[Rfam]
RNA sequence: AAGCGACACUCUGUGGCAGAUUAACAAAACUACCUGACACAAUUUGAGCUUGCUAUAGCAAGAAAAUCUAAUCCAUUCUGGUAUUCUCCUCCCCAUGAGAGGGCCCAUUAUAUAGCCGCAAAUAAU
Numbered sequence: 001a002a003g004c005g006a007c008a009c010u011c012u013g014u015g016g017c018a019g020a021u022u023a024a025c026a027a028a029a030c031u032a033c034c035u036g037a038c039a040c041a042a043u044u045u046g047a048g049c050u051u052g053c054u055a056u057a058g059c060a061a062g063a064a065a066a067u068c069u070a071a072u073c074c075a076u077u078c079u080g081g082u083a084u085u086c087u088c089c090u091c092c093c094c095a096u097g098a099g100a101g102g103g104c105c106c107a108u109u110a111u112a113u114a115g116c117c118g119c120a121a122a123u124a125a126u
Stems, first nucleotide, its partner, number of pairs: 009048003012041004017036003021032001068115003075111002079107003087100002090097001
A member of the RNA family "Small nucleolar RNA SNORA28" from Nannospalax galili, 126 nucleotides long. Rfam links the family to the GO terms nucleolus and RNA processing. It is annotated as an H/ACA-box small nucleolar RNA. The family's consensus secondary structure was predicted with RNAfold. The match comes from Rfam's covariance-model search (96 bits). Rfam's curators write: ACA28 is a member of the H/ACA class of snoRNA that guide the sites of modification of uridines to pseudouridines. The organism belongs to Nannospalax, within Eukaryota.